[Rfam]
RNA sequence: AACUAAGAACAGCCGAAUUCCUAAGCACCCGGGAAACGGGGGAACCAUCUGGGGUGAAUUGGCCGCUAUCACGCUGCCAUAGGGAACCUUCAACCGAAUCCGCAAGCUAACCUCGCAGGCCUUGGAAGGAGUUUAC
Numbered sequence: 001a002a003c004u005a006a007g008a009a010c011a012g013c014c015g016a017a018u019u020c021c022u023a024a025g026c027a028c029c030c031g032g033g034a035a036a037c038g039g040g041g042g043a044a045c046c047a048u049c050u051g052g053g054g055u056g057a058a059u060u061g062g063c064c065g066c067u068a069u070c071a072c073g074c075u076g077c078c079a080u081a082g083g084g085a086a087c088c089u090u091c092a093a094c095c096g097a098a099u100c101c102g103c104a105a106g107c108u109a110a111c112c113u114c115g116c117a118g119g120c121c122u123u124g125g126a127a128g129g130a131g132u133u134u135a136c
Base pairs, nucleotide, nucleotide: 012120013119014118018035019034020033021032022031037115038114039113040112041111046051052101053100054099060079061078062077063076082095083094
A member of the RNA family "c-di-AMP riboswitch aptamer (ydaO/yuaA leader)" from Paenibacillus lutimineralis, 136 nucleotides long. A search with the family's covariance model found it, with a score of 77 bits. Rfam links the family to the GO terms regulation of gene expression and cyclic-di-AMP binding. Lineage of the source: Bacteria > Bacillati > Caryophanales > Paenibacillaceae > Paenibacillus.